Description: Rfam assigns this 311-nucleotide RNA from Pseudoatta argentina to the family "Arthropod 7SK RNA". The match comes from Rfam's covariance-model search (127 bits). The literature on the family includes a 2008 paper in Mol Biol Evol by Gruber et al., "Arthropod 7SK RNA". It is annotated as a non-coding RNA gene. Clan: 7SK clan.
[Rfam]
RNA sequence: GGAAGCGUGUGCUAGUGAUGGCACAACUGAACAUUGAUCGCUAACGUUAGAGCUAUGGCAGAUCUGCUCAGUGGGUGUUGUCACGUUGUCGUAAGCUUUAAAGUAGCUUGAGUGUCAGACUCCCGAUUGCGCAUGCAUCUUCGUGGCUCGUCUUACGAUCACGGAUUUGCACGCCUGCACGGUUCUGAGUCUUCACGUCACUCCUCGAAGUACCGCGAUUUCCAAAUUGGGGGGCAAUCGAAUAGGUCAGACGAGGUAAUUUGUCGCUUCCAUAUGCAGGCACUGCUGAUGGUGGUACGCCAUUUUUUGUC
Numbered sequence: 001g002g003a004a005g006c007g008u009g010u011g012c013u014a015g016u017g018a019u020g021g022c023a024c025a026a027c028u029g030a031a032c033a034u035u036g037a038u039c040g041c042u043a044a045c046g047u048u049a050g051a052g053c054u055a056u057g058g059c060a061g062a063u064c065u066g067c068u069c070a071g072u073g074g075g076u077g078u079u080g081u082c083a084c085g086u087u088g089u090c091g092u093a094a095g096c097u098u099u100a101a102a103g104u105a106g107c108u109u110g111a112g113u114g115u116c117a118g119a120c121u122c123c124c125g126a127u128u129g130c131g132c133a134u135g136c137a138u139c140u141u142c143g144u145g146g147c148u149c150g151u152c153u154u155a156c157g158a159u160c161a162c163g164g165a166u167u168u169g170c171a172c173g174c175c176u177g178c179a180c181g182g183u184u185c186u187g188a189g190u191c192u193u194c195a196c197g198u199c200a201c202u203c204c205u206c207g208a209a210g211u212a213c214c215g216c217g218a219u220u221u222c223c224a225a226a227u228u229g230g231g232g233g234g235c236a237a238u239c240g241a242a243u244a245g246g247u248c249a250g251a252c253g254a255g256g257u258a259a260u261u262u263g264u265c266g267c268u269u270c271c272a273u274a275u276g277c278a279g280g281c282a283c284u285g286c287u288g289a290u291g292g293u294g295g296u297a298c299g300c301c302a303u304u305u306u307u308u309g310u311c
Stems, first nucleotide, its partner, number of pairs: 001271007015084005027071003032066002036064004040059004046053001279301003282296005
Dot-bracket structure: (((((((.......(((((.......(((..((..((((((((..(......)..)))).))))))..)))........)))))....................................................................................................................................................................................))))))).......((((((((.....)))))..)))..........